[Rfam]
RNA sequence: UAAGUAGGACAGACAAUCGCGGCUGCAUGUACCGAAAGGUCGCAGGUGAGGAAAGUCCGGGCUUCACAGGGCAGGAUGCCGGAUAACGUCCGGUAGAGGUGACUCUAAGGCCAGUGCAACAGAAAUAAACCGCCUGAGAAGACUCAGGUAAGGGUGGAAAGGCAGUGUAAGAGACUACCGCCCCGGUGGUAACAGCGGGGGCACAUGUAAACCCCAUCCGAAGCAAGACCGAACGAAAACAAUGUGGCGGCCCGUCACGUUUUAGGUAGGUCGCUUGAAACUGUCGGCAACGGCAGUUCUAGAUAGAUGAUUGUCCAACGACAUAACCCGGCUUAUCGUCCUGCUUAGAUU
Numbered sequence: 001u002a003a004g005u006a007g008g009a010c011a012g013a014c015a016a017u018c019g020c021g022g023c024u025g026c027a028u029g030u031a032c033c034g035a036a037a038g039g040u041c042g043c044a045g046g047u048g049a050g051g052a053a054a055g056u057c058c059g060g061g062c063u064u065c066a067c068a069g070g071g072c073a074g075g076a077u078g079c080c081g082g083a084u085a086a087c088g089u090c091c092g093g094u095a096g097a098g099g100u101g102a103c104u105c106u107a108a109g110g111c112c113a114g115u116g117c118a119a120c121a122g123a124a125a126u127a128a129a130c131c132g133c134c135u136g137a138g139a140a141g142a143c144u145c146a147g148g149u150a151a152g153g154g155u156g157g158a159a160a161g162g163c164a165g166u167g168u169a170a171g172a173g174a175c176u177a178c179c180g181c182c183c184c185g186g187u188g189g190u191a192a193c194a195g196c197g198g199g200g201g202c203a204c205a206u207g208u209a210a211a212c213c214c215c216a217u218c219c220g221a222a223g224c225a226a227g228a229c230c231g232a233a234c235g236a237a238a239a240c241a242a243u244g245u246g247g248c249g250g251c252c253c254g255u256c257a258c259g260u261u262u263u264a265g266g267u268a269g270g271u272c273g274c275u276u277g278a279a280a281c282u283g284u285c286g287g288c289a290a291c292g293g294c295a296g297u298u299c300u301a302g303a304u305a306g307a308u309g310a311u312u313g314u315c316c317a318a319c320g321a322c323a324u325a326a327c328c329c330g331g332c333u334u335a336u337c338g339u340c341c342u343g344c345u346u347a348g349a350u351u
Stems, first nucleotide, its partner, number of pairs: 001347010011336001012315007020048002023045004053334003057331005062223004069253004074219005079093005094108001095106004109214002114212002116208003130153002132149007161179002164176003180202001181200005187194002227272004236263001237261001239260002244258005279298008
Annotation: The family of this 351-nucleotide RNA from Coprococcus sp. AF21-14LB is "Bacterial RNase P class A". The family's consensus secondary structure is taken from published work. A search with the family's covariance model found it, with a score of 304 bits. From the family's description: Ribonuclease P (RNase P) is a ubiquitous endoribonuclease, found in archaea, bacteria and eukarya as well as chloroplasts and mitochondria.